Rfam assigns this 91-nucleotide RNA sequence to the family "skipping-rope RNA". The sequence is in the family's curated seed alignment.
[Rfam]
RNA sequence: UGCGCAUGAGGUUAGAAAAUCUGCUAGGCUAACACCGGAUAGCGAAAGCUUGAGUAGGAGAUGAAGGGUUCGCACAGUCCUUCCAUGCGCU
Dot-bracket structure: .(((((((..(((((.......[[[...))))).(.....(((....))).......)....(((((........]]])))))))))))).